[Rfam]
RNA sequence: UGCAUUGCAAGUGAUGAUGAAGUCAAGGCUUGUUUCUCUACAUUCGCAGUUGCCGCCUAAGAGCUUUCGCCCUGCCAGGCUUGAGAGCUAGUGCUGCCAAAUCCUUCCUUGGAUGUCUGAUGCAAUGCA
Numbered sequence: 001u002g003c004a005u006u007g008c009a010a011g012u013g014a015u016g017a018u019g020a021a022g023u024c025a026a027g028g029c030u031u032g033u034u035u036c037u038c039u040a041c042a043u044u045c046g047c048a049g050u051u052g053c054c055g056c057c058u059a060a061g062a063g064c065u066u067u068c069g070c071c072c073u074g075c076c077a078g079g080c081u082u083g084a085g086a087g088c089u090a091g092u093g094c095u096g097c098c099a100a101a102u103c104c105u106u107c108c109u110u111g112g113a114u115g116u117c118u119g120a121u122g123c124a125a126u127g128c129a
Stems, first nucleotide, its partner, number of pairs: 006124004063088006

Description
The record is a 129-nucleotide sequence from Zea mays, which matches "Small nucleolar RNA SNORD14" in Rfam. The literature on the family includes a 1996 paper in Nucleic Acids Res by Samarsky et al., "An essential domain in Saccharomyces cerevisiae U14 snoRNA is absent in vertebrates, but conserved in other yeasts". Rfam classes the family as a C/D-box small nucleolar RNA. From the family's description: U14 small nucleolar RNA (U14 snoRNA) is required for early cleavages of eukaryotic precursor rRNAs. In yeasts, this molecule possess a stem-loop region (known as the Y-domain) which is essential for function. A similar structure, but with a different consensus sequence, is found in plants, but is absent in vertebrates. Rfam 15.1 lists 4,559 matches to the family in 936 species.